[Rfam]
Nucleotides: 112
Base pairs, nucleotide, nucleotide: 003038004037005036006035007034008033009032014031015030016029017028018027019026045076047074048073049072050071051070052069053068054067056065078107080105081104082103083102084101085100086099087098088097089096090095
Number, partner (000 for none) and nucleotide at each position: 001000c002000g003038c004037c005036u006035c007034u008033u009032u010000a011000a012000c013000c014031g015030c016029a017028a018027u019026c020000c021000c022000g023000u024000g025000a026019g027018g028017u029016u030015g031014c032009g033008a034007a035006g036005a037004g038003g039000u040000u041000u042000a043000c044000g045076c046000g047074c048073u049072u050071u051070c052069c053068a054067u055000g056065c057000c058000c059000a060000u061000g062000g063000a064000a065056g066000g067054a068053u069052g070051g071050a072049a073048g074047g075000a076045g077000u078107a079000u080105g081104c082103c083102u084101c085100u086099u087098u088097g089096u090095g091000c092000c093000c094000g095090c096089a097088c098087a099086a100085a101084g102083a103082g104081g105080u106000u107078u108000u109000u110000u111000g112000u